[Rfam]
Description
Shown here is a 68-nucleotide RNA sequence from Streptomyces sp. SID3343, a member of the family "ASdes TB sRNA". The family has 26 seed sequences and 1,192 matches in Rfam 15.1. Pairs were carried over by alignment from the consensus structure, which is taken from published work. Taxonomically the source falls in Streptomyces (Bacteria, Bacillati, Actinomycetota, Actinomycetes).

RNA sequence: AGGGCGACGGGGUCCACGGCCCGUGCGGCCAUCAGGUAGUCGCGGAUCGCGAUGCCGUGCCGGCCCUC
Numbered sequence: 001a002g003g004g005c006g007a008c009g010g011g012g013u014c015c016a017c018g019g020c021c022c023g024u025g026c027g028g029c030c031a032u033c034a035g036g037u038a039g040u041c042g043c044g045g046a047u048c049g050c051g052a053u054g055c056c057g058u059g060c061c062g063g064c065c066c067u068c
Base pairs, nucleotide, nucleotide: 005062006061008059009058011030012029013028015027017025018024035056036055037054038053040052041051042050043049044048